[Rfam]
This 54-nucleotide RNA sequence from Carassius auratus belongs to the Rfam family "UnaL2 LINE 3' element".
RNA sequence: AAGUUUGACAAUUGUAAGUCGCUUUGGAUAAAAGCGUCAGCUAAAUGACACAUA
Numbered sequence: 001a002a003g004u005u006u007g008a009c010a011a012u013u014g015u016a017a018g019u020c021g022c023u024u025u026g027g028a029u030a031a032a033a034g035c036g037u038c039a040g041c042u043a044a045a046u047g048a049c050a051c052a053u054a
Stems, first nucleotide, its partner, number of pairs: 013043001014041002020036006